[Rfam]
RNA sequence: UGCUUUCUUCGGAAACGAGGUAUUCUCUACUGGCGGUCAAAGCCCGCGAGCCAUGCGCUGAUUCGGUGAAAGUCCGAAGCCAACAGUUGGUCUGGAUGGGAGAAGAAAGAG
Numbered sequence: 001u002g003c004u005u006u007c008u009u010c011g012g013a014a015a016c017g018a019g020g021u022a023u024u025c026u027c028u029a030c031u032g033g034c035g036g037u038c039a040a041a042g043c044c045c046g047c048g049a050g051c052c053a054u055g056c057g058c059u060g061a062u063u064c065g066g067u068g069a070a071a072g073u074c075c076g077a078a079g080c081c082a083a084c085a086g087u088u089g090g091u092c093u094g095g096a097u098g099g100g101a102g103a104a105g106a107a108a109g110a111g
Base pairs, nucleotide, nucleotide: 003109004108005107006106007105008104009103010102017027018026019025029091030090031082032081033047034046035045036044042080043079050058051057062078063077064076065075066074084094085093086092

Source information
The family of this 111-nucleotide sequence from Agathobaculum faecis is "FMN riboswitch aptamer (RFN element)". It scores 82 bits against the family's covariance model. Taxonomically the source falls in Agathobaculum (Bacteria, Bacillati, Bacillota, Butyricicoccaceae).